[Rfam]
RNA sequence: CUCUGGAGAGAGAAACCAAUAAGCGUCAGGGAGAAGGCGCAUAAAGGUUUCCACCGAAGGAUGAACGCCAUUUGGCCGAUCUUGAUCGGGCACUGACGGAUAAUCUCAGGUCAAGGGACAGAG
Numbered sequence: 001c002u003c004u005g006g007a008g009a010g011a012g013a014a015a016c017c018a019a020u021a022a023g024c025g026u027c028a029g030g031g032a033g034a035a036g037g038c039g040c041a042u043a044a045a046g047g048u049u050u051c052c053a054c055c056g057a058a059g060g061a062u063g064a065a066c067g068c069c070a071u072u073u074g075g076c077c078g079a080u081c082u083u084g085a086u087c088g089g090g091c092a093c094u095g096a097c098g099g100a101u102a103a104u105c106u107c108a109g110g111u112c113a114a115g116g117g118a119c120a121g122a123g
Stems, first nucleotide, its partner, number of pairs: 001123005012051006053111003056107002060105003066098002
Dot-bracket structure: (((((......((((((............................)))))).(((((..(((...((.............................))....))))).))).......)))))
RNA: Glycine riboswitch aptamer
Organism: Thalassospira sp. HJ